[Rfam]
Nucleotides: 120
Base pairs, nucleotide, nucleotide: 008025009024010023011022012021051073052072053071054070056068
Number, partner (000 for none) and nucleotide at each position: 001000u002000g003000c004000c005000c006000g007000g008025g009024c010023u011022g012021a013000a014000u015000u016000a017000g018000u019000g020000a021012u022011c023010g024009g025008c026000a027000g028000g029000g030000u031000a032000u033000a034000u035000u036000u037000u038000a039000a040000c041000u042000u043000u044000a045000u046000a047000a048000a049000a050000c051073u052072u053071g054070g055000a056068g057000u058000u059000u060000u061000a062000u063000u064000a065000u066000g067000u068056c069000g070054c071053u072052a073051a074000a075000u076000g077000c078000a079000g080000a081000g082000c083000a084000a085000a086000a087000a088000g089000c090000a091000g092000c093000u094000a095000u096000c097000g098000u099000u100000g101000c102000u103000g104000a105000a106000u107000a108000c109000g110000c111000a112000c113000a114000a115000a116000a117000a118000g119000a120000a